[Rfam]
RNA sequence: UCCCUUUUUGGAAGGGAUGAUGUCUGAGCACAGGACCCAAGAUAAGGAUUCUGAAUAUAUUUGCAUGUGAUUAAACAUGUGAAAUACUCUGACCUUCCAUUGGCUGGC
Numbered sequence: 001u002c003c004c005u006u007u008u009u010g011g012a013a014g015g016g017a018u019g020a021u022g023u024c025u026g027a028g029c030a031c032a033g034g035a036c037c038c039a040a041g042a043u044a045a046g047g048a049u050u051c052u053g054a055a056u057a058u059a060u061u062u063g064c065a066u067g068u069g070a071u072u073a074a075a076c077a078u079g080u081g082a083a084a085u086a087c088u089c090u091g092a093c094c095u096u097c098c099a100u101u102g103g104c105u106g107g108c
Stems, first nucleotide, its partner, number of pairs: 009099007
A member of the RNA family "Small nucleolar RNA SNORD124" from Chelonoidis abingdonii, 108 nucleotides long. On this family, see Yang et al., Nucleic Acids Res 2006: "snoSeeker: an advanced computational package for screening of guide and orphan snoRNA genes in the human genome". The family has 18 seed sequences and 191 matches in Rfam 15.1. The match comes from Rfam's covariance-model search (43 bits). NCBI's taxonomy places the organism under Eukaryota, Durocryptodira, Testudinoidea, Testudinidae, Chelonoidis nigra species complex.